[Rfam]
RNA sequence: UUCGUUAGAAAUCAGCUUAACCGACGCCGCAACGGUGUCGUCAGGAGACCCGCCACGCCGGCAGCGGGCUCCGUUGGCAGAGCCAUUCUCUGCCGGGCCUCGGCAUGAGGCCAACGGGACAUAACAGUCAAC
Numbered sequence: 001u002u003c004g005u006u007a008g009a010a011a012u013c014a015g016c017u018u019a020a021c022c023g024a025c026g027c028c029g030c031a032a033c034g035g036u037g038u039c040g041u042c043a044g045g046a047g048a049c050c051c052g053c054c055a056c057g058c059c060g061g062c063a064g065c066g067g068g069c070u071c072c073g074u075u076g077g078c079a080g081a082g083c084c085a086u087u088c089u090c091u092g093c094c095g096g097g098c099c100u101c102g103g104c105a106u107g108a109g110g111c112c113a114a115c116g117g118g119a120c121a122u123a124a125c126a127g128u129c130a131a132c
Base pairs, nucleotide, nucleotide: 022040023039024038025037026036027035028034047070049068050067051066052065053064076094077093078092079091080090081089096112097111098110099109100108101107